A member of the RNA family "mir-9242 microRNA precursor family" from Myotis davidii, 64 nucleotides long. Its family is annotated with RISC complex and miRNA-mediated post-transcriptional gene silencing in the Gene Ontology. The match comes from Rfam's covariance-model search (64 bits). Pairs were carried over by alignment from the consensus structure, which was predicted with RNAalifold.

[Rfam]
RNA sequence: GGCCUCCCUCUGCAGGGCAAUCAAUCUGGGGGCCCCAUGAUUGAUUGCCCCACAGAAGGUGGCC
Numbered sequence: 001g002g003c004c005u006c007c008c009u010c011u012g013c014a015g016g017g018c019a020a021u022c023a024a025u026c027u028g029g030g031g032g033c034c035c036c037a038u039g040a041u042u043g044a045u046u047g048c049c050c051c052a053c054a055g056a057a058g059g060u061g062g063c064c
Stems, first nucleotide, its partner, number of pairs: 001064004006059002009056004015050012029036002